[Rfam]
RNA sequence: UAAUUAGUUUGAGGCAGAUCAUUAUUUAAUUGUAGCAAACUCACACCUGAUUACUCAAAAUCACCUAUUAUUGCAAGUCCGACUACAUCAUUGACAUUGAAAAACAAGUGUAUACUUUGAGAUUUUAAUUAGAG
Numbered sequence: 001u002a003a004u005u006a007g008u009u010u011g012a013g014g015c016a017g018a019u020c021a022u023u024a025u026u027u028a029a030u031u032g033u034a035g036c037a038a039a040c041u042c043a044c045a046c047c048u049g050a051u052u053a054c055u056c057a058a059a060a061u062c063a064c065c066u067a068u069u070a071u072u073g074c075a076a077g078u079c080c081g082a083c084u085a086c087a088u089c090a091u092u093g094a095c096a097u098u099g100a101a102a103a104a105c106a107a108g109u110g111u112a113u114a115c116u117u118u119g120a121g122a123u124u125u126u127a128a129u130u131a132g133a134g
Stems, first nucleotide, its partner, number of pairs: 004132006012124001015121001018118001023114003027110002030107002